[Rfam]
RNA: ZMP/ZTP riboswitch aptamer (pfl RNA motif)
RNA sequence: AGCUCGAUGUGUAACUGGCGAAGCAUGGGGAACCAUGAGGGAGCACAUCCGGUUAGAGCAGCCGUACGCCUGGGCAAGGUAA
Numbered sequence: 001a002g003c004u005c006g007a008u009g010u011g012u013a014a015c016u017g018g019c020g021a022a023g024c025a026u027g028g029g030g031a032a033c034c035a036u037g038a039g040g041g042a043g044c045a046c047a048u049c050c051g052g053u054u055a056g057a058g059c060a061g062c063c064g065u066a067c068g069c070c071u072g073g074g075c076a077a078g079g080u081a082a
Stems, first nucleotide, its partner, number of pairs: 003052002006049007015040002017070004025036004061075003